[Rfam]
RNA sequence: AUAAUUAGAGGAAAGAUAAAUUAUAAUUAUCUUUCAUCAAUCGAAAAAGAAGGCAAAAAUGAAGACGAGCUAUCGUUUCAGUCGUCAUCUUGUACAUUUUUUAUCUAUUGACGAUUCGAUUGUUGACUCGCCUACAU
Numbered sequence: 001a002u003a004a005u006u007a008g009a010g011g012a013a014a015g016a017u018a019a020a021u022u023a024u025a026a027u028u029a030u031c032u033u034u035c036a037u038c039a040a041u042c043g044a045a046a047a048a049g050a051a052g053g054c055a056a057a058a059a060u061g062a063a064g065a066c067g068a069g070c071u072a073u074c075g076u077u078u079c080a081g082u083c084g085u086c087a088u089c090u091u092g093u094a095c096a097u098u099u100u101u102u103a104u105c106u107a108u109u110g111a112c113g114a115u116u117c118g119a120u121u122g123u124u125g126a127c128u129c130g131c132c133u134a135c136a137u
Stems, first nucleotide, its partner, number of pairs: 006040001008038002011035001013033006063133002066130004072120004081115007
This 137-nucleotide sequence from Chenopodium quinoa belongs to the Rfam family "Small nucleolar RNA snoR111". Rfam 15.1 lists 533 matches to the family in 223 species. Pairs were carried over by alignment from the consensus structure, which was predicted with WAR. A search with the family's covariance model found it, with a score of 68 bits. It is annotated as an H/ACA-box small nucleolar RNA.